[Rfam]
Nucleotides: 176
Base pairs, nucleotide, nucleotide: 001016004013005012006011028176030174031173032172035169036168041162042161043160044159045158046157047155049153050152051151065150066149067148068147069146070145076142077141080138081137082136086132088117089116090115091114095110096109
Number, partner (000 for none) and nucleotide at each position: 001016g002000u003000a004013c005012c006011a007000g008000a009000a010000a011006u012005g013004g014000g015000c016001u017000g018000u019000c020000c021000g022000g023000a024000g025000g026000a027000a028176g029000c030174a031173u032172g033000a034000g035169g036168c037000a038000g039000a040000a041162c042161c043160c044159a045158u046157g047155u048000a049153c050152g051151u052000a053000g054000c055000g056000a057000a058000c059000a060000g061000c062000g063000a064000a065150c066149c067148a068147a069146c070145u071000a072000u073000a074000u075000g076142g077141c078000a079000g080138c081137g082136g083000g084000g085000a086132g087000g088117a089116g090115g091114u092000c093000g094000a095110g096109c097000a098000g099000g100000c101000g102000u103000g104000a105000g106000a107000g108000a109096g110095c111000a112000a113000g114091a115090c116089c117088u118000g119000a120000u121000a122000u123000c124000c125000g126000g127000u128000g129000g130000a131000c132086c133000g134000a135000a136082c137081c138080g139000a140000a141077g142076u143000g144000a145070a146069g147068u148067u149066g150065g151051a152050c153049g154000g155047g156000a157046u158045a159044u160043g161042g162041g163000g164000a165000g166000g167000u168036g169035c170000u171000g172032c173031g174030u175000c176028u